[Rfam]
RNA sequence: CAUUCUACACAGGUUGGGAUCAGUCACAAUGCUUUGUCUGUCAGUGGUAUUGCCCUGGUCUCGGCCUGUCGAGGUUGC
Numbered sequence: 001c002a003u004u005c006u007a008c009a010c011a012g013g014u015u016g017g018g019a020u021c022a023g024u025c026a027c028a029a030u031g032c033u034u035u036g037u038c039u040g041u042c043a044g045u046g047g048u049a050u051u052g053c054c055c056u057g058g059u060c061u062c063g064g065c066c067u068g069u070c071g072a073g074g075u076u077g078c
Base pairs, nucleotide, nucleotide: 004074005073006072009069010068011067012066013065014064016062017061018060019059020058022056023055027052028051029050030049031048032047033046